[Rfam]
RNA sequence: GUGGGGGCUUCGGCUCGCACACUCCUCACACCUCCCCGCCCGGCGCGUCCGGGCGUU
Dot-bracket structure: (((.((((....)))).)))................(((((((.....)))))))..